[Rfam]
RNA sequence: GGCUCGAUGAUCGAAGUCAACUUUUUGACAAUAUACGCUAUUCUGAGAUAGCUGAAAGCUGAUAACAGAGAUUAUGAGAGCU
Dot-bracket structure: (((((........................................................................)))))
Numbered sequence: 001g002g003c004u005c006g007a008u009g010a011u012c013g014a015a016g017u018c019a020a021c022u023u024u025u026u027g028a029c030a031a032u033a034u035a036c037g038c039u040a041u042u043c044u045g046a047g048a049u050a051g052c053u054g055a056a057a058g059c060u061g062a063u064a065a066c067a068g069a070g071a072u073u074a075u076g077a078g079a080g081c082u
Stems, first nucleotide, its partner, number of pairs: 001082005
Small nucleolar RNA U54: an 82-nucleotide RNA from Zingiber officinale. Its Rfam clan is "U54 clan". A search with the family's covariance model found it, with a score of 58 bits. Gene Ontology terms of the family: nucleolus and RNA processing. U54 is a C/D box small nucleolar RNA, which acts as a methylation guide for 18S ribosomal RNA in plants. A reference for the family is Chen et al. (2003), "The high diversity of snoRNAs in plants: identification and comparative study of 120 snoRNA genes from Oryza sativa", Nucleic Acids Res.